[Rfam]
PreQ1 (pre queuosine) riboswitch aptamer: a 45-nucleotide sequence from Neobacillus thermocopriae. Rfam links the family to the GO term queuosine biosynthetic process. This family is a bacterial riboswitch that binds to the metabolite preQ1, an intermediate in the biosynthesis of the modified nucleoside queuosine from GTP. One example of this riboswitch is located in the leader of the Bacillus subtilis ykvJKLM (queCDEF) operon which encodes four genes necessary for queuosine production. For this family Rfam cites "Synthetic ligands for PreQ(1) riboswitches provide structural and mechanistic insights into targeting RNA tertiary structure" (Connelly et al., Nat Commun, 2019). NCBI's taxonomy places the organism under Bacteria, Bacillota, Bacilli, Caryophanales, Neobacillus.
RNA sequence: GAUAAAGUGGUUCGAAACCAUCCCACUAUAAAAAACUAAGGAGAA
Numbered sequence: 001g002a003u004a005a006a007g008u009g010g011u012u013c014g015a016a017a018c019c020a021u022c023c024c025a026c027u028a029u030a031a032a033a034a035a036c037u038a039a040g041g042a043g044a045a
Stems, first nucleotide, its partner, number of pairs: 006027005016037001